[Rfam]
RNA: Ribosomal S15 leader
RNA sequence: UGGCUUGGCUGAAUUAGUGAUUGGCUAAGUCUUUAUUCAUCCUUAGGAGAAAUUUAUGUCACUAACAGUACAAGAAACAGCAGCAGUUGUUGCUGAAUACGCAACUAAAGAA
Numbered sequence: 001u002g003g004c005u006u007g008g009c010u011g012a013a014u015u016a017g018u019g020a021u022u023g024g025c026u027a028a029g030u031c032u033u034u035a036u037u038c039a040u041c042c043u044u045a046g047g048a049g050a051a052a053u054u055u056a057u058g059u060c061a062c063u064a065a066c067a068g069u070a071c072a073a074g075a076a077a078c079a080g081c082a083g084c085a086g087u088u089g090u091u092g093c094u095g096a097a098u099a100c101g102c103a104a105c106u107a108a109a110g111a112a
Stems, first nucleotide, its partner, number of pairs: 007026006044065001046063002049060001